A member of the RNA family "SAM riboswitch aptamer (S box leader)" from Tersicoccus phoenicis, 101 nucleotides long. Taxonomically the source falls in Tersicoccus (Bacteria, Bacillati, Micrococcales, Micrococcaceae).
RNA sequence: GCACCAUCCCGAGCGGCCGAGAGAUCUGGAUCGAUGACGCCGCAGCAACCGUGGUCGAAGAACCGCUGACCACACGGUGCUACCGCCAGAAGCGAUGGAAG
Numbered sequence: 001g002c003a004c005c006a007u008c009c010c011g012a013g014c015g016g017c018c019g020a021g022a023g024a025u026c027u028g029g030a031u032c033g034a035u036g037a038c039g040c041c042g043c044a045g046c047a048a049c050c051g052u053g054g055u056c057g058a059a060g061a062a063c064c065g066c067u068g069a070c071c072a073c074a075c076g077g078u079g080c081u082a083c084c085g086c087c088a089g090a091a092g093c094g095a096u097g098g099a100a101g
Stems, first nucleotide, its partner, number of pairs: 004098005013043005021032002026089004044081004049077002051073007085093001